[Rfam]
The record is a 144-nucleotide RNA from Lamprotornis superbus, which matches "Small nucleolar RNA SNORA70" in Rfam.
Its family is annotated with RNA processing and nucleolus in the Gene Ontology.
Rfam 15.1 lists 5,173 matches to the family in 383 species.
From the family's description: snoRNA U70 seems to be exclusive to mammals and is a member of the H/ACA class of snoRNA which contain H (ANANNA) and ACA box motifs. H/ACA box snoRNAs are involved in the conversion of uridines to pseudouridines (5-ribosyluracil) a constituent of structural RNAs (transfer, ribosomal, small nuclear, and small nucleolar).
NCBI's taxonomy places the organism under Eukaryota, Bilateria, Sauropsida, Theropoda, Lamprotornis.
For this family Rfam cites "Pseudouridine in RNA: what, where, how, and why" (Charette and Gray, IUBMB Life, 2000).
RNA sequence: CCGCAGUUAAUUAAGCCGGCCGUGGCCCCUCCCCCAUGGGGUCCCGGCGUGCACUGGCUGCGCACAGAGACCCCUCCCCCCCCCGGCUGUGUAGGGACCCCUCCCCCACCUGGGGGGGCACCCAAAGGGGCCGGGGGGACAAAA
Numbered sequence: 001c002c003g004c005a006g007u008u009a010a011u012u013a014a015g016c017c018g019g020c021c022g023u024g025g026c027c028c029c030u031c032c033c034c035c036a037u038g039g040g041g042u043c044c045c046g047g048c049g050u051g052c053a054c055u056g057g058c059u060g061c062g063c064a065c066a067g068a069g070a071c072c073c074c075u076c077c078c079c080c081c082c083c084c085g086g087c088u089g090u091g092u093a094g095g096g097a098c099c100c101c102u103c104c105c106c107c108a109c110c111u112g113g114g115g116g117g118g119c120a121c122c123c124a125a126a127g128g129g130g131c132c133g134g135g136g137g138g139a140c141a142a143a144a
Stems, first nucleotide, its partner, number of pairs: 003052003019048004025042004085132003098118007
Dot-bracket structure: ..(((.............((((..((((..........))))..)))).)))................................(((..........(((((((.......)))))))...........)))............